[Rfam]
Overview: The family of this 123-nucleotide RNA from Lederbergia lenta is "ylbH leader". A reference for the family is Barrick et al. (2004), "New RNA motifs suggest an expanded scope for riboswitches in bacterial genetic control", Proc Natl Acad Sci U S A. Rfam links the family to the GO term regulation of gene expression. About the family: This family is a putative regulatory RNA structure that is found upstream of the ylbH gene in B. subtilis and related low GC Gram-positive bacteria. Taxonomically the source falls in Lederbergia (Bacteria, Bacillati, Bacillota, Caryophanales).
Nucleotides: 123
Stems, first nucleotide, its partner, number of pairs: 011031009032071005041059001043057004083120004088116004093112005
Number, partner (000 for none) and nucleotide at each position: 001000a002000a003000u004000u005000a006000a007000a008000a009000a010000a011031c012030c013029c014028u015027g016026c017025a018024u019023a020000u021000a022000u023019u024018a025017u026016g027015c028014a029013g030012g031011g032071u033070c034069c035068u036067u037000c038000u039000a040000a041059u042000u043057u044056c045055u046054g047000c048000a049000u050000a051000a052000a053000g054046c055045a056044g057043a058000u059041a060000g061000a062000a063000g064000g065000c066000a067036a068035a069034g070033g071032g072000a073000g074000a075000g076000g077000a078000g079000a080000a081000a082000c083120c084119g085118g086117a087000g088116g089115a090114a091113g092000a093112a094111c095110u096109u097108a098000u099000g100000g101000g102000g103000a104000a105000a106000c107000g108097u109096a110095a111094g112093u113091c114090u115089u116088c117086u118085c119084c120083g121000u122000g123000u